[Rfam]
RNA sequence: GGAACAGGCCUUUCAGGCAUCCUCUCCUAAAACUUCAUAGCCGUCCUUCUGGGCGGCUUUUUUUUGCUUUUU
Numbered sequence: 001g002g003a004a005c006a007g008g009c010c011u012u013u014c015a016g017g018c019a020u021c022c023u024c025u026c027c028u029a030a031a032a033c034u035u036c037a038u039a040g041c042c043g044u045c046c047u048u049c050u051g052g053g054c055g056g057c058u059u060u061u062u063u064u065u066g067c068u069u070u071u072u
Stems, first nucleotide, its partner, number of pairs: 008018004040057007
RNA: Makes More Granules Regulator RNA (mmgR)
Organism: Sphingobium sp. YR768